[Rfam]
RNA sequence: CGCAAGCCCCGAUUGAAACGGCAUCCUUUUCUGAGGAGGAACGACGAGGAAAAGAUAGAGUGGAAAGCGGGAUUAAGC
Number, nucleotide and partner (000 for none) at each position: 001c000002g000003c000004a000005a000006g000007c000008c000009c070010c069011g068012a000013u066014u065015g000016a000017a000018a061019c060020g000021g000022c000023a056024u055025c054026c000027u000028u000029u051030u050031c049032u048033g000034a000035g000036g000037a000038g000039g000040a000041a000042c000043g000044a000045c000046g000047a000048g032049g031050a030051a029052a000053a000054g025055a024056u023057a000058g000059a000060g019061u018062g000063g000064a000065a014066a013067g000068c011069g010070g009071g000072a000073u000074u000075a000076a000077g000078c000
Shown here is a 78-nucleotide sequence from Flavobacteriaceae bacterium 3519-10, a member of the family "Flavo-1 RNA". By type it is a small RNA.